Record summary:
This 153-nucleotide RNA sequence from Palleronia sediminis belongs to the Rfam family "Ruegeria cis2 sRNA". By type it is a small RNA. Taxonomically the source falls in Palleronia (Bacteria, Alphaproteobacteria, Rhodobacterales, Roseobacteraceae). On this family, see Rivers et al., Front Microbiol 2016: "Experimental Identification of Small Non-Coding RNAs in the Model Marine Bacterium Ruegeria pomeroyi DSS-3". Its family is annotated with regulation of gene expression in the Gene Ontology.
[Rfam]
RNA sequence: GUUCGAGUUGUGCGGGAAAUAGUUGACGAAGGUGAACCCCCGCGCCUGGUCGAUGGCGUGAAACAGCGGAUUCCAGUCGAACCACGCGAUCAUGUAGCCCGGCAGCGAAUUGGCUACGAACAUCUUGCCCGAGGCGAUCAUGCUGGCGCGCUG
Numbered sequence: 001g002u003u004c005g006a007g008u009u010g011u012g013c014g015g016g017a018a019a020u021a022g023u024u025g026a027c028g029a030a031g032g033u034g035a036a037c038c039c040c041c042g043c044g045c046c047u048g049g050u051c052g053a054u055g056g057c058g059u060g061a062a063a064c065a066g067c068g069g070a071u072u073c074c075a076g077u078c079g080a081a082c083c084a085c086g087c088g089a090u091c092a093u094g095u096a097g098c099c100c101g102g103c104a105g106c107g108a109a110u111u112g113g114c115u116a117c118g119a120a121c122a123u124c125u126u127g128c129c130c131g132a133g134g135c136g137a138u139c140a141u142g143c144u145g146g147c148g149c150g151c152u153g
Base pairs, nucleotide, nucleotide: 002035003034008030009029013025014024015023038056039055041052042051064153065152066151067150068149071081072080073079086147087146089144091142092141093140094139098134099133100131101130102129103127104126105125107123110119111118112117